[Rfam]
RNA sequence: UACAAUAAAAAGGCUUGCAAGGGCGGUCGGCUAGUCUCCCGGAAGGGAGGUGAUGCCUGUGGAGGUUAAGGACACGCUGACUUUAAUGAUCGGCUUUGGGAUGCUGCUUGUUGCGCUGCUUACGCUGAUAGUUAACAUCAUCGUAGUUCUUAUCCAAAACAAAAAGAAAUAGACCGCCCAUCGCGAAUGGAAUACGGUCUAUUUCACGAUCAUUCCUUAUUCAGCCGACCGCCUUUGAAGCGGUUAUUGUACCAAGGGAGCACGGUAGCAGCCGUUGCUCC
Numbered sequence: 001u002a003c004a005a006u007a008a009a010a011a012g013g014c015u016u017g018c019a020a021g022g023g024c025g026g027u028c029g030g031c032u033a034g035u036c037u038c039c040c041g042g043a044a045g046g047g048a049g050g051u052g053a054u055g056c057c058u059g060u061g062g063a064g065g066u067u068a069a070g071g072a073c074a075c076g077c078u079g080a081c082u083u084u085a086a087u088g089a090u091c092g093g094c095u096u097u098g099g100g101a102u103g104c105u106g107c108u109u110g111u112u113g114c115g116c117u118g119c120u121u122a123c124g125c126u127g128a129u130a131g132u133u134a135a136c137a138u139c140a141u142c143g144u145a146g147u148u149c150u151u152a153u154c155c156a157a158a159a160c161a162a163a164a165a166g167a168a169a170u171a172g173a174c175c176g177c178c179c180a181u182c183g184c185g186a187a188u189g190g191a192a193u194a195c196g197g198u199c200u201a202u203u204u205c206a207c208g209a210u211c212a213u214u215c216c217u218u219a220u221u222c223a224g225c226c227g228a229c230c231g232c233c234u235u236u237g238a239a240g241c242g243g244u245u246a247u248u249g250u251a252c253c254a255a256g257g258g259a260g261c262a263c264g265g266u267a268g269c270a271g272c273c274g275u276u277g278c279u280c281c
Stems, first nucleotide, its partner, number of pairs: 001251005007245001012226004016185003020181001021179003025174001027172001032053001034051001036049005061123001063121004075088002099114001101112001196205002229243004257281006263274004
BsrG: a 281-nucleotide sequence from Paenibacillus tyrphae.
The match comes from Rfam's covariance-model search (55 bits).
The family's RNA type in Rfam is small RNA.
The organism belongs to Paenibacillus, within Bacteria.
A reference for the family is Muller et al. (2016), "A multistress responsive type I toxin-antitoxin system: bsrE/SR5 from the B. subtilis chromosome", RNA Biol.